[Rfam]
RNA: mir-156 microRNA precursor family
Organism: Tetracentron sinense
RNA sequence: CUGACAGAAGAGAGUGAGCACACACAAGGCAAUGAUAUAAGAGUAUGCAGUUGCCGGUGCGUGCUCACUUCUCUUUCUGUCAG
Numbered sequence: 001c002u003g004a005c006a007g008a009a010g011a012g013a014g015u016g017a018g019c020a021c022a023c024a025c026a027a028g029g030c031a032a033u034g035a036u037a038u039a040a041g042a043g044u045a046u047g048c049a050g051u052u053g054c055c056g057g058u059g060c061g062u063g064c065u066c067a068c069u070u071c072u073c074u075u076u077c078u079g080u081c082a083g
Stems, first nucleotide, its partner, number of pairs: 001083009010073003013069009023059003